[Rfam]
RNA sequence: UUCCAGCACCGAUUAAAGUGAAAAUCCUCCCGAUUUUUAUCGGGAGAUUGCAGCGUAAAGCGGGAAAUAAG
Numbered sequence: 001u002u003c004c005a006g007c008a009c010c011g012a013u014u015a016a017a018g019u020g021a022a023a024a025u026c027c028u029c030c031c032g033a034u035u036u037u038u039a040u041c042g043g044g045a046g047a048u049u050g051c052a053g054c055g056u057a058a059a060g061c062g063g064g065a066a067a068u069a070a071g
Stems, first nucleotide, its partner, number of pairs: 009063003013059002018054002023049004029044005

Rfam assigns this 71-nucleotide RNA sequence from Flavobacterium micromati to the family "Flavo-1 RNA". Taxonomically the source falls in Flavobacterium (Bacteria, Bacteroidota, Flavobacteriia, Flavobacteriaceae). By type it is a small RNA. Rfam 15.1 lists 7,497 matches to the family in 411 species.